PhotoRC-II RNA: a 91-nucleotide RNA.
It is annotated as a cis-regulatory element.
It is one of the family's seed sequences.
[Rfam]
RNA sequence: UAGUUCCCUCUUCCUAACCGAGACCUAUGGGGAGGUUAAACACAGUCUCUCAUAUCCACACUGGAGGGUGGUGUGGAGCAUACUUGUAACU
Numbered sequence: 001u002a003g004u005u006c007c008c009u010c011u012u013c014c015u016a017a018c019c020g021a022g023a024c025c026u027a028u029g030g031g032g033a034g035g036u037u038a039a040a041c042a043c044a045g046u047c048u049c050u051c052a053u054a055u056c057c058a059c060a061c062u063g064g065a066g067g068g069u070g071g072u073g074u075g076g077a078g079c080a081u082a083c084u085u086g087u088a089a090c091u
Base pairs, nucleotide, nucleotide: 010034011033012032013031014030015029016028020049021048022047023046024045055077056076057075058074059073060072061071